The family of this 125-nucleotide RNA from Cicer arietinum is "Small nucleolar RNA SNORA69". The base pairs follow the family's consensus structure, which was predicted with PFOLD. By type it is an H/ACA-box small nucleolar RNA. The organism belongs to Cicer, within Eukaryota. It scores 52 bits against the family's covariance model. From the family's description: U69 is a member of the H/ACA class of small nucleolar RNAs (snoRNAs) which act as guides in the the modification of uridines to pseudouridines. Rfam links the family to the GO terms nucleolus and RNA processing.

RNA sequence: UGGGUGGGCAUAUUACAGCGCUUUUGUGAGAAAGCGCUGUAAUAUGCCCACCCAUAUAUGAAAUUAUGGUUGGGCAUUUUACAACGCUUUUUUGAGAAAGCGCUGUAAUAUGCCCAACCAUAAUU
Number, nucleotide and partner (000 for none) at each position: 001u054002g053003g052004g051005u050006g049007g000008g000009c000010a000011u000012a000013u000014u000015a000016c039017a038018g037019c036020g035021c034022u033023u032024u031025u000026g000027u000028g000029a000030g000031a024032a023033a022034g021035c020036g019037c018038u017039g016040u000041a000042a000043u000044a000045u000046g000047c000048c000049c006050a005051c004052c003053c002054a001055u000056a000057u000058a000059u000060g000061a000062a000063a000064u000065u122066a121067u120068g119069g118070u117071u116072g115073g114074g113075c112076a000077u000078u000079u000080u000081a106082c105083a104084a000085c102086g101087c100088u099089u098090u097091u096092u000093u000094g000095a000096g091097a090098a089099a088100g087101c086102g085103c000104u083105g082106u081107a000108a000109u000110a000111u000112g075113c074114c073115c072116a071117a070118c069119c068120a067121u066122a065123a000124u000125u000